A member of the RNA family "tRNA" from Acidithrix ferrooxidans, 75 nucleotides long.
The match comes from Rfam's covariance-model search (65 bits).
From the family's description: Transfer RNA (tRNA) molecules are approximately 80 nucleotides in length.
Pairs were carried over by alignment from the consensus structure, which is taken from published work.
[Rfam]
RNA sequence: GGACCUGUGGUGCAGCUUGGAGUGCACGCCGGCCUGUCAAGCCGGAGGUCGCGGGUUCAAAUCCCGUCAGGUCCG
Numbered sequence: 001g002g003a004c005c006u007g008u009g010g011u012g013c014a015g016c017u018u019g020g021a022g023u024g025c026a027c028g029c030c031g032g033c034c035u036g037u038c039a040a041g042c043c044g045g046a047g048g049u050c051g052c053g054g055g056u057u058c059a060a061a062u063c064c065c066g067u068c069a070g071g072u073c074c075g
Base pairs, nucleotide, nucleotide: 001074002073003072004071005070006069007068010027011026012025013024029045030044031043032042033041051067052066053065054064055063